[Rfam]
RNA sequence: CCUCCAUUCUUGGCAUGCAUGCUGUUCCUUUGUACUCGUGUGUGUAUGUAUGUUAUGGAGAGAGAACAAGUCCAGUGCUAUGGCUUCGGCGCCAGAAUGUUCCCUGUCUUCUGGUUCUGUCCUCAGUAGCUGGGGCAUUC
Numbered sequence: 001c002c003u004c005c006a007u008u009c010u011u012g013g014c015a016u017g018c019a020u021g022c023u024g025u026u027c028c029u030u031u032g033u034a035c036u037c038g039u040g041u042g043u044g045u046a047u048g049u050a051u052g053u054u055a056u057g058g059a060g061a062g063a064g065a066a067c068a069a070g071u072c073c074a075g076u077g078c079u080a081u082g083g084c085u086u087c088g089g090c091g092c093c094a095g096a097a098u099g100u101u102c103c104c105u106g107u108c109u110u111c112u113g114g115u116u117c118u119g120u121c122c123u124c125a126g127u128a129g130c131u132g133g134g135g136c137a138u139u140c
Base pairs, nucleotide, nucleotide: 002060003059004058005057014044015043016042017041018040019039021037024035025034073132074131075130076129092114093113094112095111096110097109099108

Rfam assigns this 140-nucleotide RNA from Coregonus sp. 'balchen' to the family "Small nucleolar RNA SNORA57". The family's consensus secondary structure was predicted with PFOLD. Rfam's curators write: U99 belongs to the H/ACA class of snoRNAs which are thought to guide the sites of modification of uridines to pseudouridines, the target for this family is unknown. The match comes from Rfam's covariance-model search (54 bits). Its family is annotated with nucleolus and RNA processing in the Gene Ontology. It is annotated as an H/ACA-box small nucleolar RNA. Lineage of the source: Eukaryota > Opisthokonta > Euteleostomi > Neopterygii > Coregonus.